[Rfam]
RNA sequence: GAGCAGUGAUGGAAAGGUCUCACCAUGGACCUUUAUAACUAUGACGAUUUCUACACUUGAACUGAACUCA
Numbered sequence: 001g002a003g004c005a006g007u008g009a010u011g012g013a014a015a016g017g018u019c020u021c022a023c024c025a026u027g028g029a030c031c032u033u034u035a036u037a038a039c040u041a042u043g044a045c046g047a048u049u050u051c052u053a054c055a056c057u058u059g060a061a062c063u064g065a066a067c068u069c070a
Stems, first nucleotide, its partner, number of pairs: 001069003013034007
Source information:
Small nucleolar RNA U2-30: a 70-nucleotide sequence from Canis lupus. Gene Ontology terms of the family: nucleolus and RNA processing. Pairs were carried over by alignment from the consensus structure, which is taken from published work. The family's RNA type in Rfam is C/D-box small nucleolar RNA. The source organism's lineage runs through Eukaryota, Bilateria, Eutheria, Caniformia and Canis lupus.